The family of this 180-nucleotide RNA from Natronincola ferrireducens is "6S / SsrS RNA". The match comes from Rfam's covariance-model search (95 bits). The family's consensus secondary structure is taken from published work. Rfam classes the family as a non-coding RNA gene.
[Rfam]
RNA sequence: AAAUACCUGCUGUGUGCGUGAAUUCGAUAACGUUUUGAGCCAACACAAUUACAUUGGGAGAUUCUUGUUUAUUUACGUAAUAAAUGCCUUUUUUUAGUAAGGACUUAUGAAAUAAAUAACUGAACACCCACCUGCUUAGCAGGUUUCAAAACAAUCGAAUCACGGCAUGGUGGGUAACAU
Numbered sequence: 001a002a003a004u005a006c007c008u009g010c011u012g013u014g015u016g017c018g019u020g021a022a023u024u025c026g027a028u029a030a031c032g033u034u035u036u037g038a039g040c041c042a043a044c045a046c047a048a049u050u051a052c053a054u055u056g057g058g059a060g061a062u063u064c065u066u067g068u069u070u071a072u073u074u075a076c077g078u079a080a081u082a083a084a085u086g087c088c089u090u091u092u093u094u095u096a097g098u099a100a101g102g103a104c105u106u107a108u109g110a111a112a113u114a115a116a117u118a119a120c121u122g123a124a125c126a127c128c129c130a131c132c133u134g135c136u137u138a139g140c141a142g143g144u145u146u147c148a149a150a151a152c153a154a155u156c157g158a159a160u161c162a163c164g165g166c167a168u169g170g171u172g173g174g175u176a177a178c179a180u
Stems, first nucleotide, its partner, number of pairs: 004176012017164003032152007039144003056129003060125001062123002070118006082106002087102004